Source information: This 47-nucleotide sequence from Gopherus evgoodei belongs to the Rfam family "Histone 3' UTR stem-loop". A reference for the family is Williams and Marzluff (1995), "The sequence of the stem and flanking sequences at the 3' end of histone mRNA are critical determinants for the binding of the stem-loop binding protein", Nucleic Acids Res. The base pairs follow the family's consensus structure, which is taken from published work.
RNA sequence: CCAAAGGCUCUUUUAAGAGCCACCACGUUUACAUUGAAAGGAGCUGU
Numbered sequence: 001c002c003a004a005a006g007g008c009u010c011u012u013u014u015a016a017g018a019g020c021c022a023c024c025a026c027g028u029u030u031a032c033a034u035u036g037a038a039a040g041g042a043g044c045u046g047u
Stems, first nucleotide, its partner, number of pairs: 006021006